[Rfam]
RNA: Pseudomonas sRNA P26
Organism: Geopseudomonas guangdongensis
RNA sequence: GACAUUGCGUCGACAGCCCGGGCUACAGGUUUUGGGCUGAUGGCUGGUGGCUUAUGCCACCGGCCU
Numbered sequence: 001g002a003c004a005u006u007g008c009g010u011c012g013a014c015a016g017c018c019c020g021g022g023c024u025a026c027a028g029g030u031u032u033u034g035g036g037c038u039g040a041u042g043g044c045u046g047g048u049g050g051c052u053u054a055u056g057c058c059a060c061c062g063g064c065c066u
Stems, first nucleotide, its partner, number of pairs: 014039005022030002042065010